Background: A member of the RNA family "Small nucleolar RNA snR60/Z15/Z230/Z193/J17" from Schizothecium vesticola, 100 nucleotides long. Rfam links the family to the GO terms nucleolus and RNA processing. The pairing is the family consensus, mapped onto this sequence. Lineage of the source: Eukaryota > Opisthokonta > Ascomycota > sordariomyceta > Schizothecium. Rfam classes the family as a C/D-box small nucleolar RNA. The match comes from Rfam's covariance-model search (67 bits).
RNA sequence: CCGGUGUGUAUGAUGAUUUACAUCAUAGCAUAGUUCAUCUGAAUUAUUUCAUGAAGACAACUUGUAACACAUAGUCUUUCGUCCCCAUCUGACUCACACC
Numbered sequence: 001c002c003g004g005u006g007u008g009u010a011u012g013a014u015g016a017u018u019u020a021c022a023u024c025a026u027a028g029c030a031u032a033g034u035u036c037a038u039c040u041g042a043a044u045u046a047u048u049u050c051a052u053g054a055a056g057a058c059a060a061c062u063u064g065u066a067a068c069a070c071a072u073a074g075u076c077u078u079u080c081g082u083c084c085c086c087a088u089c090u091g092a093c094u095c096a097c098a099c100c
Base pairs, nucleotide, nucleotide: 004099005098006097007096008095